Annotation:
Shown here is a 67-nucleotide sequence from Phrynocephalus forsythii, a member of the family "Small nucleolar RNA SNORD73". Its family is annotated with nucleolus and RNA processing in the Gene Ontology. It scores 65 bits against the family's covariance model.
RNA sequence: AAUGAAUGAUGACAAUUUGUUUCGGUCCCAAAUGAGUCAAUGAUUACUGUUUCCUAAUCCUGACAUU
Numbered sequence: 001a002a003u004g005a006a007u008g009a010u011g012a013c014a015a016u017u018u019g020u021u022u023c024g025g026u027c028c029c030a031a032a033u034g035a036g037u038c039a040a041u042g043a044u045u046a047c048u049g050u051u052u053c054c055u056a057a058u059c060c061u062g063a064c065a066u067u
Base pairs, nucleotide, nucleotide: 001067002066003065004064

Notes:
By type it is a C/D-box small nucleolar RNA. The organism belongs to Phrynocephalus, within Eukaryota.